[Rfam]
This 369-nucleotide RNA from Flexistipes sinusarabici belongs to the Rfam family "Bacterial RNase P class A".
A search with the family's covariance model found it, with a score of 281 bits.
Gene Ontology terms of the family: dimeric ribonuclease P complex, ribonuclease P activity and tRNA processing.
RNA sequence: UGAAAUAGUUUAUAAAACGUUUUUCAUCAUUUAGUGGCGGGGAGGAAAGUCCGGGCACCGCAGAGCAGGAUGGUCGGUAACGCCGACCCGCCGUGAGGCGGGGAAAGUGCCGCAGAAAAUAUACCGCCGAGCACUUAAUAUUGUACAAUUAAGUGCUCAGGUAAGGGUGAAAUGGUGGUGUAAGAGACCACCGGUUGCCUGGUGACAGGUAACGCAUGGUAAACCCCGUCCGGUGCAAGGCCAAAUAGGUGAGCGUUUGAGGGUUGCUCGUCCGAGGCUCACGGGUAGGCUGCUAGAGUCGACCGGUAACGGUCGUCCCAGAGAAAUGGUCAUCCCCGACAGAACCCGGCUUACAGACUUUCUCUUCUG
Numbered sequence: 001u002g003a004a005a006u007a008g009u010u011u012a013u014a015a016a017a018c019g020u021u022u023u024u025c026a027u028c029a030u031u032u033a034g035u036g037g038c039g040g041g042g043a044g045g046a047a048a049g050u051c052c053g054g055g056c057a058c059c060g061c062a063g064a065g066c067a068g069g070a071u072g073g074u075c076g077g078u079a080a081c082g083c084c085g086a087c088c089c090g091c092c093g094u095g096a097g098g099c100g101g102g103g104a105a106a107g108u109g110c111c112g113c114a115g116a117a118a119a120u121a122u123a124c125c126g127c128c129g130a131g132c133a134c135u136u137a138a139u140a141u142u143g144u145a146c147a148a149u150u151a152a153g154u155g156c157u158c159a160g161g162u163a164a165g166g167g168u169g170a171a172a173u174g175g176u177g178g179u180g181u182a183a184g185a186g187a188c189c190a191c192c193g194g195u196u197g198c199c200u201g202g203u204g205a206c207a208g209g210u211a212a213c214g215c216a217u218g219g220u221a222a223a224c225c226c227c228g229u230c231c232g233g234u235g236c237a238a239g240g241c242c243a244a245a246u247a248g249g250u251g252a253g254c255g256u257u258u259g260a261g262g263g264u265u266g267c268u269c270g271u272c273c274g275a276g277g278c279u280c281a282c283g284g285g286u287a288g289g290c291u292g293c294u295a296g297a298g299u300c301g302a303c304c305g306g307u308a309a310c311g312g313u314c315g316u317c318c319c320a321g322a323g324a325a326a327u328g329g330u331c332a333u334c335c336c337c338g339a340c341a342g343a344a345c346c347c348g349g350c351u352u353a354c355a356g357a358c359u360u361u362c363u364c365u366u367c368u369g
Stems, first nucleotide, its partner, number of pairs: 001039002005035002047352003051349005056235004063269004068231005073087005088101005102226002107224002109220003124166002126162003129158011174192006193215001194213008239291004249282006261273004298317001300315006